[Rfam]
RNA sequence: GGGGGAUAGCUUAGGUCCUCCGCUCUUGGCGUGUUAAUAGCGUUGCUUUUGGCCGAGCAUCGUGGUUAGUGAAUC
Numbered sequence: 001g002g003g004g005g006a007u008a009g010c011u012u013a014g015g016u017c018c019u020c021c022g023c024u025c026u027u028g029g030c031g032u033g034u035u036a037a038u039a040g041c042g043u044u045g046c047u048u049u050u051g052g053c054c055g056a057g058c059a060u061c062g063u064g065g066u067u068a069g070u071g072a073a074u075c
Base pairs, nucleotide, nucleotide: 001021002020003019004018005017006016034069035068036067037066038065040063041062042061044059045058046057047056048055
RNA: L13-Bacteroidia ribosomal protein leader